[Rfam]
RNA sequence: ACUCAAUGAUUGCCGACUAGGUUCGCGACAUCCGUGUUGCAACAUCGGCAUCAGCACAUCCAUGUGCA
Numbered sequence: 001a002c003u004c005a006a007u008g009a010u011u012g013c014c015g016a017c018u019a020g021g022u023u024c025g026c027g028a029c030a031u032c033c034g035u036g037u038u039g040c041a042a043c044a045u046c047g048g049c050a051u052c053a054g055c056a057c058a059u060c061c062a063u064g065u066g067c068a
Stems, first nucleotide, its partner, number of pairs: 011050006025040005054067004

Bacillaceae-1 RNA: a 68-nucleotide RNA sequence from Paraliobacillus sp. PM-2. Rfam classes the family as a small RNA. The organism belongs to Paraliobacillus, within Bacteria.